[Rfam]
RNA: Group II catalytic intron D1-D4-3
Organism: Deltaproteobacteria bacterium
RNA sequence: UGUCUGCCGACAGGCAGGUGAAGGAAGCCGGAGUACAAAGCUAUGAGCCGACCUGUCUGCGCGCACCGCACAGGCAGGCGAACAGAAACGGCAUACAAGGUCCAGUCUCCGGAUAAGUCAGCACAACAUGUCAAAGCCCUGGGUUCAGGAGAUACGGUAAAUGGCGCGGCUGUACAGUGGAAGUUCACGUC
Numbered sequence: 001u002g003u004c005u006g007c008c009g010a011c012a013g014g015c016a017g018g019u020g021a022a023g024g025a026a027g028c029c030g031g032a033g034u035a036c037a038a039a040g041c042u043a044u045g046a047g048c049c050g051a052c053c054u055g056u057c058u059g060c061g062c063g064c065a066c067c068g069c070a071c072a073g074g075c076a077g078g079c080g081a082a083c084a085g086a087a088a089c090g091g092c093a094u095a096c097a098a099g100g101u102c103c104a105g106u107c108u109c110c111g112g113a114u115a116a117g118u119c120a121g122c123a124c125a126a127c128a129u130g131u132c133a134a135a136g137c138c139c140u141g142g143g144u145u146c147a148g149g150a151g152a153u154a155c156g157g158u159a160a161a162u163g164g165c166g167c168g169g170c171u172g173u174a175c176a177g178u179g180g181a182a183g184u185u186c187a188c189g190u191c
Stems, first nucleotide, its partner, number of pairs: 001016006027191001029189002035184002040178003044174002046171005089166002092163003100158003105153006111139002114136001117132001119130002